[Rfam]
RNA sequence: GUGGGAUGAGGUAGUAGGUUGUUUAGUUAUUGGGCCACACCCACCACAGGGAGAGAACUAAACAACCUACUGUCUCUCCUAA
Numbered sequence: 001g002u003g004g005g006a007u008g009a010g011g012u013a014g015u016a017g018g019u020u021g022u023u024u025a026g027u028u029a030u031u032g033g034g035c036c037a038c039a040c041c042c043a044c045c046a047c048a049g050g051g052a053g054a055g056a057a058c059u060a061a062a063c064a065a066c067c068u069a070c071u072g073u074c075u076c077u078c079c080u081a082a
Stems, first nucleotide, its partner, number of pairs: 002081005008076020032042003
RNA: let-7 microRNA precursor family